[Rfam]
RNA sequence: CGAAUGUUUCUUGCUUAAAUGAGUAUUCCAUGGAAGUGAUUCUCACUCGCAUAUGAGUUGGUUUCGUCUCUUCAUGAGAUGCUCAUCUAAGCAAGCAACGUUUG
Numbered sequence: 001c002g003a004a005u006g007u008u009u010c011u012u013g014c015u016u017a018a019a020u021g022a023g024u025a026u027u028c029c030a031u032g033g034a035a036g037u038g039a040u041u042c043u044c045a046c047u048c049g050c051a052u053a054u055g056a057g058u059u060g061g062u063u064u065c066g067u068c069u070c071u072u073c074a075u076g077a078g079a080u081g082c083u084c085a086u087c088u089a090a091g092c093a094a095g096c097a098a099c100g101u102u103u104g
Stems, first nucleotide, its partner, number of pairs: 004101005010095008019086009029076002

Overview
MIR828 microRNA precursor family: a 104-nucleotide RNA from Raphanus sativus. On this family, see Rajagopalan et al., Genes Dev 2006: "A diverse and evolutionarily fluid set of microRNAs in Arabidopsis thaliana". Rfam 15.1 lists 204 matches to the family in 134 species. The match comes from Rfam's covariance-model search (74 bits).